[Rfam]
RNA sequence: AUUGUUGAGUCAAAUAUGGGCUCCUUAAUACAGUAAUGUAUUAAUGAUAAUGGGGUGAAUUGCAAGAACAUCUAUUUAUAAUACAACUCCCAAUUUAUAGAUUACUUGCAGCGAAGCUUGGUACGGUGUAUUCUUAAUAUAAGAAUUGUAUCCUGAACGUUCAACGACUAAUGAGUGAGUUACAUCAACAAUAAUCUCGACACGAGCGCCCCACAACCAACAAUUCAAUAUAAUUUAUCUCAUUUUUUUUUAACUGCAAGAAAAAAUAAAAAAGUUGGUUGAUGACAUAGUCUAAACAUCAGAUAUACCUAAAA
Numbered sequence: 001a002u003u004g005u006u007g008a009g010u011c012a013a014a015u016a017u018g019g020g021c022u023c024c025u026u027a028a029u030a031c032a033g034u035a036a037u038g039u040a041u042u043a044a045u046g047a048u049a050a051u052g053g054g055g056u057g058a059a060u061u062g063c064a065a066g067a068a069c070a071u072c073u074a075u076u077u078a079u080a081a082u083a084c085a086a087c088u089c090c091c092a093a094u095u096u097a098u099a100g101a102u103u104a105c106u107u108g109c110a111g112c113g114a115a116g117c118u119u120g121g122u123a124c125g126g127u128g129u130a131u132u133c134u135u136a137a138u139a140u141a142a143g144a145a146u147u148g149u150a151u152c153c154u155g156a157a158c159g160u161u162c163a164a165c166g167a168c169u170a171a172u173g174a175g176u177g178a179g180u181u182a183c184a185u186c187a188a189c190a191a192u193a194a195u196c197u198c199g200a201c202a203c204g205a206g207c208g209c210c211c212c213a214c215a216a217c218c219a220a221c222a223a224u225u226c227a228a229u230a231u232a233a234u235u236u237a238u239c240u241c242a243u244u245u246u247u248u249u250u251u252a253a254c255u256g257c258a259a260g261a262a263a264a265a266a267u268a269a270a271a272a273a274g275u276u277g278g279u280u281g282a283u284g285a286c287a288u289a290g291u292c293u294a295a296a297c298a299u300c301a302g303a304u305a306u307a308c309c310u311a312a313a314a
Base pairs, nucleotide, nucleotide: 007023008022009021010020011019013017029040030039031038051213052212053211054210056208057207061110062109063108064107065106066105071101072100073099074098075097111160112159122148123147164293166292167291168290169289170288216279217278218277219276220275221274224271299312301310302309
A member of the RNA family "Group I catalytic intron" from Teratosphaeria destructans, 314 nucleotides long. Gene Ontology term of the family: Group I intron splicing. NCBI's taxonomy places the organism under Eukaryota, Ascomycota, saccharomyceta, leotiomyceta, Teratosphaeria. Pairs were carried over by alignment from the consensus structure, which is taken from published work.